[Rfam]
RNA sequence: AAGGACAACAGUGGCAGCGGCCAGCUCUGGAGCCCUGGAGUCAGCUCCCGCAGUAACUCCAGAGCUCUCCGUCUGCAGGGCCUGGAGGCUCUGGGGCGGG
Numbered sequence: 001a002a003g004g005a006c007a008a009c010a011g012u013g014g015c016a017g018c019g020g021c022c023a024g025c026u027c028u029g030g031a032g033c034c035c036u037g038g039a040g041u042c043a044g045c046u047c048c049c050g051c052a053g054u055a056a057c058u059c060c061a062g063a064g065c066u067c068u069c070c071g072u073c074u075g076c077a078g079g080g081c082c083u084g085g086a087g088g089c090u091c092u093g094g095g096g097c098g099g100g
Stems, first nucleotide, its partner, number of pairs: 002092003006088001009084003013073003017069001019068002023066009035053003

Overview
A member of the RNA family "mir-8834 microRNA precursor family" from Nyctereutes procyonoides, 100 nucleotides long. The source organism's lineage runs through Eukaryota, Chordata, Eutheria, Boreoeutheria and Nyctereutes. The base pairs follow the family's consensus structure, which was predicted with RNAalifold.